[Rfam]
The family of this 91-nucleotide RNA from Fulvimarina pelagi is "Glycine riboswitch aptamer". Pairs were carried over by alignment from the consensus structure. A search with the family's covariance model found it, with a score of 65 bits.

RNA sequence: UCGUCACCGCCGGGAGAGUUCGGCCGCAAGGCCGGCGCCGAAGGAGCAACCGCCCCGGAAUCUCUCAGGCUUAAGGGACCGGUGGUGGCGC
Numbered sequence: 001u002c003g004u005c006a007c008c009g010c011c012g013g014g015a016g017a018g019u020u021c022g023g024c025c026g027c028a029a030g031g032c033c034g035g036c037g038c039c040g041a042a043g044g045a046g047c048a049a050c051c052g053c054c055c056c057g058g059a060a061u062c063u064c065u066c067a068g069g070c071u072u073a074a075g076g077g078a079c080c081g082g083u084g085g086u087g088g089c090g091c
Stems, first nucleotide, its partner, number of pairs: 006086008020035004037070003040066002044064003050058002